Rfam assigns this 112-nucleotide sequence from Volucribacter psittacicida to the family "Glycine riboswitch aptamer". This family represents the bacterial glycine riboswitch.

RNA sequence: GGACGAACCCUUGGAGAGAGCCAAUGUGUUAAUUAACACAAAAUGGACGCCGAAGGCGCAAAAAAUUCGUUAGAAUUUUCAAACGCUCAGGCAAAAGGACAGGGGAGGAAAG
Numbered sequence: 001g002g003a004c005g006a007a008c009c010c011u012u013g014g015a016g017a018g019a020g021c022c023a024a025u026g027u028g029u030u031a032a033u034u035a036a037c038a039c040a041a042a043a044u045g046g047a048c049g050c051c052g053a054a055g056g057c058g059c060a061a062a063a064a065a066u067u068c069g070u071u072a073g074a075a076u077u078u079u080c081a082a083a084c085g086c087u088c089a090g091g092c093a094a095a096a097g098g099a100c101a102g103g104g105g106a107g108g109a110a111a112g
Base pairs, nucleotide, nucleotide: 008105009104010103011102012101013100021046022045023044049092050091051090052088053087056086057085058084062079063078064077065076066075